RNA sequence: GUACGUGCUCCGGGGUCGGUGAAAGUCCGAGCCGGCGGUGACAGUCCGCGACCCCCGUUCCGACGGGGCUGAACUGGUGGGAUUCCAGUACCGACGGUGAAAGUCCGGAUGGGAGGAAGCACGUCU
Numbered sequence: 001g002u003a004c005g006u007g008c009u010c011c012g013g014g015g016u017c018g019g020u021g022a023a024a025g026u027c028c029g030a031g032c033c034g035g036c037g038g039u040g041a042c043a044g045u046c047c048g049c050g051a052c053c054c055c056c057g058u059u060c061c062g063a064c065g066g067g068g069c070u071g072a073a074c075u076g077g078u079g080g081g082a083u084u085c086c087a088g089u090a091c092c093g094a095c096g097g098u099g100a101a102a103g104u105c106c107g108g109a110u111g112g113g114a115g116g117a118a119g120c121a122c123g124u125c126u
Stems, first nucleotide, its partner, number of pairs: 003124007010115001017029003031104002033093002035049004044091002053068002073089005095107003